The family of this 110-nucleotide sequence from Leptolyngbya sp. NIES-3755 is "Guanidine-I riboswitch aptamer". Rfam's curators write: This family represents a conserved RNA structure found upstream of the ykkC and yxkD genes in Bacillus subtilis and related genes in other bacteria. Pairs were carried over by alignment from the consensus structure. The organism belongs to Leptolyngbya, within Bacteria. Its family is annotated with regulation of gene expression in the Gene Ontology.
RNA sequence: AAAGAUCGCUUCUAGGGUUCCGAUUCAUCCAAGGCUGAAUGACUGGUCCGAGAGAAGCAAGCUGUCUAGCGCAAUGGACAGCCACACGGCGGGACAAAAGCCCGGGAGAG
Dot-bracket structure: .......(((((..((...((((((((........)))))..).)).))....)))))..(((((((........)))))))..(.[...(((.......))).)..]..